The record is a 68-nucleotide RNA sequence from Nematostella vectensis, which matches "mir-9428 microRNA precursor family" in Rfam.
It scores 86 bits against the family's covariance model.
Lineage of the source: Eukaryota > Opisthokonta > Actiniaria > Edwardsiidae > Nematostella.
[Rfam]
RNA sequence: UCCGCUCAUGAACAUAGGGACACUGUUCGCGAAACUUUCGCGAACGUUGUUCGCGAAAUUCGCGAACA
Numbered sequence: 001u002c003c004g005c006u007c008a009u010g011a012a013c014a015u016a017g018g019g020a021c022a023c024u025g026u027u028c029g030c031g032a033a034a035c036u037u038u039c040g041c042g043a044a045c046g047u048u049g050u051u052c053g054c055g056a057a058a059u060u061c062g063c064g065a066a067c068a
Base pairs, nucleotide, nucleotide: 009062010061011060012059018052019051020050021049024046025045026044027043028042029041030040031039032038033037